[Rfam]
RNA sequence: CUCCUGGGACGACCCACGGAGCCCGACAAGGACGCGGGACGACCCGC
Numbered sequence: 001c002u003c004c005u006g007g008g009a010c011g012a013c014c015c016a017c018g019g020a021g022c023c024c025g026a027c028a029a030g031g032a033c034g035c036g037g038g039a040c041g042a043c044c045c046g047c
Stems, first nucleotide, its partner, number of pairs: 001021004005016004034047005

Rfam assigns this 47-nucleotide sequence from Halomonas sp. PA5 to the family "Guanidine-II riboswitch aptamer (mini-ykkC)". Lineage of the source: Bacteria > Pseudomonadati > Pseudomonadota > Halomonadaceae > Halomonas. The family's consensus secondary structure is taken from published work.